[Rfam]
RNA sequence: UGAUUAAAAAUGUCUCAAGAUCAAUCAUGUAAUCGUGCUGGCACGUAAUUACAUGAUUGAUUUUGAGACAUGCCCGACAAUGAGGAAAAAAGAUAUGCGAAUGAAUGAGCAUAUCGAUUUCCGAAUUGCCGGUAGCGAUUGCGAGAGCGAAGCGAAGCAAUCGUGUUUUAAUCA
Numbered sequence: 001u002g003a004u005u006a007a008a009a010a011u012g013u014c015u016c017a018a019g020a021u022c023a024a025u026c027a028u029g030u031a032a033u034c035g036u037g038c039u040g041g042c043a044c045g046u047a048a049u050u051a052c053a054u055g056a057u058u059g060a061u062u063u064u065g066a067g068a069c070a071u072g073c074c075c076g077a078c079a080a081u082g083a084g085g086a087a088a089a090a091a092g093a094u095a096u097g098c099g100a101a102u103g104a105a106u107g108a109g110c111a112u113a114u115c116g117a118u119u120u121c122c123g124a125a126u127u128g129c130c131g132g133u134a135g136c137g138a139u140u141g142c143g144a145g146a147g148c149g150a151a152g153c154g155a156a157g158c159a160a161u162c163g164u165g166u167u168u169u170a171a172u173c174a
Base pairs, nucleotide, nucleotide: 001174002173003172004171005170006169007168012069013068014067015066018063019062020061021060022059023058024057025056026055027054028053029052030051031050032049033048034045035044036043037042074132075131076130078128079127080126081125084122085121086120087119092115093114094113095112096111097110098109136163137162138161139160140159141158142157147153148152